[Rfam]
RNA sequence: AAGAGCAAUGAGUUGAUAGAGACUUGGAAGAUUGACUUAAGAAUAAA
Numbered sequence: 001a002a003g004a005g006c007a008a009u010g011a012g013u014u015g016a017u018a019g020a021g022a023c024u025u026g027g028a029a030g031a032u033u034g035a036c037u038u039a040a041g042a043a044u045a046a047a
Stems, first nucleotide, its partner, number of pairs: 010038008
Background: Plastid-rpl16 group II-D1 intron: a 47-nucleotide sequence from Amborella trichopoda. The family's consensus secondary structure was predicted with LocARNA. Its family is annotated with Group II intron splicing in the Gene Ontology. Rfam describes the family as follows. Plastid-rpl16 is a non-coding RNA (ncRNA) recognised in plastids. It was recognised in and intronic region of a ribosome rpl16 gene. The organism belongs to Amborella, within Eukaryota.